[Rfam]
RNA sequence: CGCUCAGCCCCGUAUUGUCGUCCGACCCCCCGACCCGACGGCAGUACGGGGCCCUUGC
Numbered sequence: 001c002g003c004u005c006a007g008c009c010c011c012g013u014a015u016u017g018u019c020g021u022c023c024g025a026c027c028c029c030c031c032g033a034c035c036c037g038a039c040g041g042c043a044g045u046a047c048g049g050g051g052c053c054c055u056u057g058c
Stems, first nucleotide, its partner, number of pairs: 007052016